[Rfam]
RNA: mir-190 microRNA precursor family
Organism: Tribolium castaneum
Nucleotides: 076
Stems, first nucleotide, its partner, number of pairs: 005072005011065012024052002029049002032046002
Number, partner (000 for none) and nucleotide at each position: 001000g002000u003000u004000g005072c006071u007070a008069u009068a010000a011065g012064a013063u014062a015061u016060g017059u018058u019057u020056g021055a022054u023000a024052u025051u026000c027000u028000u029049g030048g031000u032046u033045g034000u035000a036000u037000u038000u039000u040000u041000a042000a043000u044000u045033c046032a047000c048030c049029c050000a051025g052024g053000a054022g055021u056020c057019a058018a059017a060016c061015a062014u063013a064012u065011u066000a067000u068009u069008a070007u071006a072005g073000a074000a075000g076000c